[Rfam]
Nucleotides: 072
Stems, first nucleotide, its partner, number of pairs: 007065003011061002017055004022050012
Number, partner (000 for none) and nucleotide at each position: 001000u002000a003000g004000a005000g006000g007065g008064u009063g010000g011061c012060g013000c014000u015000c016000a017055a018054a019053c020052c021000g022050u023049u024048a025047c026046c027045a028044u029043u030042a031041c032040u033039g034000a035000g036000u037000u038000u039033u040032a041031g042030u043029a044028a045027u046026g047025g048024u049023a050022a051000g052020g053019g054018u055017u056000c057000u058000a059000a060012u061011g062000c063009u064008g065007c066000u067000u068000c069000u070000c071000a072000a